A member of the RNA family "MIR8643 microRNA precursor family" from Gossypium raimondii, 149 nucleotides long. The match comes from Rfam's covariance-model search (140 bits). The base pairs follow the family's consensus structure, which was predicted with RNAalifold. Taxonomically the source falls in Gossypium (Eukaryota, Embryophyta, Tracheophyta, eudicotyledons).
[Rfam]
RNA sequence: AUGUCUUUUAACAUAUCAGGAAGUCAAAUUGGCAGUGAAGAAAGAAGUAAUAAGUCGAAAGCCAUCAUUGCUUAUAAUAAAAACCCAUAAAACCAUACCAUGAUUCUUUCUUCACUACCAAAUCGACUUCCUGAUAUGUUAAAAGAAAU
Numbered sequence: 001a002u003g004u005c006u007u008u009u010a011a012c013a014u015a016u017c018a019g020g021a022a023g024u025c026a027a028a029u030u031g032g033c034a035g036u037g038a039a040g041a042a043a044g045a046a047g048u049a050a051u052a053a054g055u056c057g058a059a060a061g062c063c064a065u066c067a068u069u070g071c072u073u074a075u076a077a078u079a080a081a082a083a084c085c086c087a088u089a090a091a092a093c094c095a096u097a098c099c100a101u102g103a104u105u106c107u108u109u110c111u112u113c114a115c116u117a118c119c120a121a122a123u124c125g126a127c128u129u130c131c132u133g134a135u136a137u138g139u140u141a142a143a144a145g146a147a148a149u
Stems, first nucleotide, its partner, number of pairs: 004146015020130006027123001029121003034116013048102002057094001